Notes: Shown here is a 66-nucleotide RNA from Clarias magur, a member of the family "Selenocysteine insertion sequence 1". Pairs were carried over by alignment from the consensus structure, which is taken from published work. The organism belongs to Clarias, within Eukaryota. The incorporation of selenocysteine into a protein sequence is directed by an in-frame UGA codon (usually a stop codon) within the coding region of the mRNA. Selenoprotein mRNAs contain a conserved secondary structure in the 3' UTR that is required for the distinction of UGA stop from UGA selenocysteine.
[Rfam]
RNA sequence: GGAGCAGUUUGUGAGGGUCUGUUCUGAAAGCUCACUUGGCGGGACCAGACCUGAUGUCUUUGUUCC
Numbered sequence: 001g002g003a004g005c006a007g008u009u010u011g012u013g014a015g016g017g018u019c020u021g022u023u024c025u026g027a028a029a030g031c032u033c034a035c036u037u038g039g040c041g042g043g044a045c046c047a048g049a050c051c052u053g054a055u056g057u058c059u060u061u062g063u064u065c066c
Base pairs, nucleotide, nucleotide: 001066002065003064004063005062016051017050018049019048020047021046023044024043025042030040031039032038